[Rfam]
RNA sequence: UACUCAGCAUAUUUGAUAGUAUGUAGUUUAAUAUAAUUAACGUAAGUUAGUUAAAGAAAGAGUAG
Numbered sequence: 001u002a003c004u005c006a007g008c009a010u011a012u013u014u015g016a017u018a019g020u021a022u023g024u025a026g027u028u029u030a031a032u033a034u035a036a037u038u039a040a041c042g043u044a045a046g047u048u049a050g051u052u053a054a055a056g057a058a059a060g061a062g063u064a065g
Stems, first nucleotide, its partner, number of pairs: 002063004007024007034053007
Rfam assigns this 65-nucleotide sequence from Lactobacillus kefiranofaciens to the family "emrB-Lactobacillus RNA". The family's RNA type in Rfam is small RNA. Rfam's curators put it in the seed alignment.